[Rfam]
RNA sequence: UUAAAGGGAAUUUGCGACUGUUAAUCAAUCCAUUCGAACAGCCACACCUUCCUUUUAAGA
Numbered sequence: 001u002u003a004a005a006g007g008g009a010a011u012u013u014g015c016g017a018c019u020g021u022u023a024a025u026c027a028a029u030c031c032a033u034u035c036g037a038a039c040a041g042c043c044a045c046a047c048c049u050u051c052c053u054u055u056u057a058a059g060a
Base pairs, nucleotide, nucleotide: 001058002057003056004055005054006053007052008051009050010049013046014045016043018041019040020039021038022037
This 60-nucleotide sequence from Haplochromis burtoni belongs to the Rfam family "mir-724 microRNA precursor family". The family has 8 seed sequences and 223 matches in Rfam 15.1. Its family is annotated with RISC complex and miRNA-mediated post-transcriptional gene silencing in the Gene Ontology. NCBI's taxonomy places the organism under Eukaryota, Gnathostomata, Neoteleostei, Ctenosquamata, Haplochromis.